Shown here is a 52-nucleotide RNA from Piliocolobus tephrosceles, a member of the family "mir-1302 microRNA precursor family".
Nucleotides: 052
Base pairs, nucleotide, nucleotide: 006048007047009045010044011043012042014040015039016038018036019035020034021033022031
Number, partner (000 for none) and nucleotide at each position: 001000u002000u003000u004000a005000u006048a007047g008000g009045a010044u011043a012042a013000g014040u015039a016038u017000g018036u019035c020034c021033u022031a023000u024000a025000c026000a027000a028000u029000a030000u031022u032000u033021g034020g035019g036018a037000c038016a039015u040014a041000c042012u043011u044010g045009u046000a047007c048006u049000a050000g051000a052000a
The literature on the family includes a 2008 paper in Genome Res by Morin et al., "Application of massively parallel sequencing to microRNA profiling and discovery in human embryonic stem cells". A search with the family's covariance model found it, with a score of 65 bits.